[Rfam]
RNA: MIR2630 microRNA precursor family
RNA sequence: UUCUGCAAAUAUAGAAUAUUUGGUUUUGGUCCUUGGUAUUUUGUUUUAAUCCUUGUAAAAUCAUUUCAUAUUGAAAUUGGUCCCUAUAAUAUUCAUUUUAGUCCUCAUUUUGAGGGACUAAAAUCAAAUAUUCUACAUAUUGCAAGGAUCAAAACCAAAAUUUUCAUAUUUGCAGGGACAAAACCAAAAAAAUAUUUUUAUAGGGACUAAAACAAAAAUGUCAGAUAUUUGGAGGGA
Number, nucleotide and partner (000 for none) at each position: 001u000002u000003c000004u000005g000006c231007a230008a229009a228010u227011a226012u225013a000014g000015a000016a221017u000018a219019u218020u217021u000022g000023g213024u212025u211026u210027u209028g208029g207030u206031c205032c204033u203034u202035g000036g195037u194038a193039u192040u191041u190042u189043g185044u000045u183046u182047u181048a000049a000050u178051c177052c000053u175054u174055g173056u172057a171058a170059a169060a000061u168062c000063a000064u000065u000066u000067c000068a161069u160070a000071u158072u157073g156074a000075a000076a000077u152078u151079g150080g149081u148082c147083c146084c000085u000086a000087u142088a141089a140090u139091a138092u137093u000094c000095a000096u000097u000098u000099u000100a000101g000102u000103c000104c000105u000106c000107a124108u123109u122110u121111u120112g000113a000114g000115g000116g000117a000118c000119u000120a111121a110122a109123a108124u107125c000126a000127a000128a000129u000130a000131u000132u000133c000134u000135a000136c000137a092138u091139a090140u089141u088142g087143c000144a000145a000146g083147g082148a081149u080150c079151a078152a077153a000154a000155c000156c073157a072158a071159a000160a069161u068162u000163u000164u000165c000166a000167u000168a061169u059170u058171u057172g056173c055174a054175g053176g000177g051178a050179c000180a000181a047182a046183a045184c000185c043186a000187a000188a000189a042190a041191a040192a039193u038194a037195u036196u000197u000198u000199u000200a000201u000202a034203g033204g032205g031206a030207c029208u028209a027210a026211a025212a024213c023214a000215a000216a000217a020218a019219u018220g000221u016222c000223a000224g000225a012226u011227a010228u009229u008230u007231g006232g000233a000234g000235g000236g000237a000